[Rfam]
RNA: ctRNA
Organism: Periweissella fabalis
RNA sequence: UAUAAAUACGCUCCCUUAGGCGUGUUGUUGGAUAAGCAUAAAGAAAAACUUUUAGUCGGGAAUUUCUUUAUGCUUUUAUUAUAACA
Number, nucleotide and partner (000 for none) at each position: 001u000002a000003u000004a029005a028006a000007u000008a025009c024010g023011c022012u000013c020014c000015c000016u000017u000018a000019g000020g013021c000022g011023u010024g009025u008026u000027g000028u005029u004030g000031g000032a000033u000034a075035a074036g073037c072038a071039u070040a069041a068042a067043g066044a065045a064046a063047a000048a000049c000050u000051u000052u000053u000054a000055g000056u000057c000058g000059g000060g000061a000062a000063u046064u045065u044066c043067u042068u041069u040070a039071u038072g037073c036074u035075u034076u000077u000078a000079u000080u000081a000082u000083a000084a000085c000086a000